RNA sequence: GAGAACUGAUAUUCCGACAGGUGGAAUGAAGGGGUAACGCCCGGAAACGCCUGCUCUGAUACUCCGGUAUGCGUCUGGAAGUGCAUCCUUCCAGUGGUAUAACGCCCGGUGAAGUCGGCUGUAUACACCCGCUGUGACGAUCACGCACGUUGCGGCAAACCAAGCCAGAGGUGGCUGUGGGUGAUAGGCCGGGAGUCUAUAAA
Numbered sequence: 001g002a003g004a005a006c007u008g009a010u011a012u013u014c015c016g017a018c019a020g021g022u023g024g025a026a027u028g029a030a031g032g033g034g035u036a037a038c039g040c041c042c043g044g045a046a047a048c049g050c051c052u053g054c055u056c057u058g059a060u061a062c063u064c065c066g067g068u069a070u071g072c073g074u075c076u077g078g079a080a081g082u083g084c085a086u087c088c089u090u091c092c093a094g095u096g097g098u099a100u101a102a103c104g105c106c107c108g109g110u111g112a113a114g115u116c117g118g119c120u121g122u123a124u125a126c127a128c129c130c131g132c133u134g135u136g137a138c139g140a141u142c143a144c145g146c147a148c149g150u151u152g153c154g155g156c157a158a159a160c161c162a163a164g165c166c167a168g169a170g171g172u173g174g175c176u177g178u179g180g181g182u183g184a185u186a187g188g189c190c191g192g193g194a195g196u197c198u199a200u201a202a203a
Base pairs, nucleotide, nucleotide: 018053019052020051021050022049023048032042033041034040054195055194056193057192064109065108066107067106068101069100070099071098072097075094076093077092078091079090080089081088116191117190118189119188120187126183127182128181129180130179131156132155133154138152139151140150141149161177162176164175165174166173167172

This 203-nucleotide RNA sequence from Blautia pseudococcoides belongs to the Rfam family "Group II catalytic intron D1-D4-5". Group II introns are found in rRNA, tRNA and mRNA of organelles in fungi, plants and protists, and also in mRNA in bacteria. The literature on the family includes a 2001 paper in Trends Genet by Bonen and Vogel, "The ins and outs of group II introns". Its family is annotated with Group II intron splicing in the Gene Ontology.